[Rfam]
RNA: Small nucleolar RNA snoR145
Organism: Digitaria exilis
RNA sequence: GAUUGAAGGUCCCAGCAGAGGCUUGAUCUGAAAUGAGAGCUCUCUAACACUAUAACCUUCAAAAAUGGAUUAAGCCAUGUCGUACGAUGCUUGAAUUUUGAUUGAUAUUUCAUAGCAUCUCAUACCAUGGCUAUAGAUGG
Numbered sequence: 001g002a003u004u005g006a007a008g009g010u011c012c013c014a015g016c017a018g019a020g021g022c023u024u025g026a027u028c029u030g031a032a033a034u035g036a037g038a039g040c041u042c043u044c045u046a047a048c049a050c051u052a053u054a055a056c057c058u059u060c061a062a063a064a065a066u067g068g069a070u071u072a073a074g075c076c077a078u079g080u081c082g083u084a085c086g087a088u089g090c091u092u093g094a095a096u097u098u099u100g101a102u103u104g105a106u107a108u109u110u111c112a113u114a115g116c117a118u119c120u121c122a123u124a125c126c127a128u129g130g131c132u133a134u135a136g137a138u139g140g
Base pairs, nucleotide, nucleotide: 003062004061005060006059007058008057009056011020013018025044026043027038028037029036074131075130076129077128078127079126086119087118089116090115091114092112093111094110095109